[Rfam]
RNA sequence: CUUUGAUCAGAGGCAGUGUCCUCUAUUGAGG
Dot-bracket structure: (((((((.((((((...).))))))))))))

This 31-nucleotide sequence from Odobenus rosmarus belongs to the Rfam family "Iron response element II". Taxonomically the source falls in Odobenus rosmarus (Eukaryota, Gnathostomata, Euteleostomi, Mammalia). It scores 31 bits against the family's covariance model. Rfam describes the family as follows. IRE, TFRC, SLC40A1, SDHB, SLC11A2, CDC42BPA, ACO2, ALAS2_H.SAPIENS, CDC14A, EPAS1, ALAS2, qoxD, Hao1, NDUFS1, transferrin, Aconitate.